[Rfam]
RNA sequence: AUUUUGAUAGUCAAUCGCUGUAUCUGAAAAAAGAUAUAGAGGAAACUCCACGCUUGCACAAUCUGCGAUGAUUGUAGUGUUUGUGCUAAACGAAAAAAUAAGUUUAGGCAUUAUUUAUGAUGACGGCAAAACUAACCUAAGGGAAACUAUGGAAUGGUUUGAGGUGCCACAGAGACGAGUAAAGGGAAACCUGGAAAUGGAACGCGGUAAACCCCACAAGCAAGAAACUCAAAUUUUGGUAGAGGAACUUAACAACAAGAAUUGAAUUGAAGUUAGGAUCGAAAGAUAGAUAGAUGAUUGACACAGGAAACUGAACAGAACGUGGGUUAUGCAA
Numbered sequence: 001a002u003u004u005u006g007a008u009a010g011u012c013a014a015u016c017g018c019u020g021u022a023u024c025u026g027a028a029a030a031a032a033g034a035u036a037u038a039g040a041g042g043a044a045a046c047u048c049c050a051c052g053c054u055u056g057c058a059c060a061a062u063c064u065g066c067g068a069u070g071a072u073u074g075u076a077g078u079g080u081u082u083g084u085g086c087u088a089a090a091c092g093a094a095a096a097a098a099u100a101a102g103u104u105u106a107g108g109c110a111u112u113a114u115u116u117a118u119g120a121u122g123a124c125g126g127c128a129a130a131a132c133u134a135a136c137c138u139a140a141g142g143g144a145a146a147c148u149a150u151g152g153a154a155u156g157g158u159u160u161g162a163g164g165u166g167c168c169a170c171a172g173a174g175a176c177g178a179g180u181a182a183a184g185g186g187a188a189a190c191c192u193g194g195a196a197a198u199g200g201a202a203c204g205c206g207g208u209a210a211a212c213c214c215c216a217c218a219a220g221c222a223a224g225a226a227a228c229u230c231a232a233a234u235u236u237u238g239g240u241a242g243a244g245g246a247a248c249u250u251a252a253c254a255a256c257a258a259g260a261a262u263u264g265a266a267u268u269g270a271a272g273u274u275a276g277g278a279u280c281g282a283a284a285g286a287u288a289g290a291u292a293g294a295u296g297a298u299u300g301a302c303a304c305a306g307g308a309a310a311c312u313g314a315a316c317a318g319a320a321c322g323u324g325g326g327u328u329a330u331g332c333a334a
Base pairs, nucleotide, nucleotide: 004334005333006332009330010302011301012300013299014298015297016296018039019038020037021036022035023034044328045327046326048325049324050323051322052321053224054223055222056221057220058075059074060073061072062071063070081219082218083217084216085215086107087106088105089104090103091102108124109122110121111120112119113118125214126213128160129159130158136152137151141148142147164212165211166208167207168206183192184191185190228244229243230242248277249276250275251274252273253272278287279286280285304313305312306311
The record is a 334-nucleotide RNA from Williamsoniiplasma luminosum, which matches "Bacterial RNase P class B" in Rfam. The literature on the family includes a 1998 paper in Annu Rev Biochem by Frank and Pace, "Ribonuclease P: unity and diversity in a tRNA processing ribozyme". The organism belongs to Williamsoniiplasma, within Bacteria. The family's RNA type in Rfam is ribozyme. The family's consensus secondary structure is taken from published work. From the family's description: Ribonuclease P (RNase P) is a ubiquitous endoribonuclease, found in archaea, bacteria and eukarya as well as chloroplasts and mitochondria. Its best characterised activity is the generation of mature 5'-ends of tRNAs by cleaving the 5'-leader elements of precursor-tRNAs.